[Rfam]
RNA sequence: ACGGGCUGGAUUUUGUUCACUGACACCGGUACCUGAUACGGCCGGUGCAG
Numbered sequence: 001a002c003g004g005g006c007u008g009g010a011u012u013u014u015g016u017u018c019a020c021u022g023a024c025a026c027c028g029g030u031a032c033c034u035g036a037u038a039c040g041g042c043c044g045g046u047g048c049a050g
Base pairs, nucleotide, nucleotide: 001016002015003014004013020050021049022048024047025046026045027044028043029042030041
The record is a 50-nucleotide RNA from Streptomyces sp. PRh5, which matches "L17-Actino-Proteobacteria ribosomal protein leader" in Rfam.
The family's RNA type in Rfam is cis-regulatory leader.
The sequence is in the family's curated seed alignment.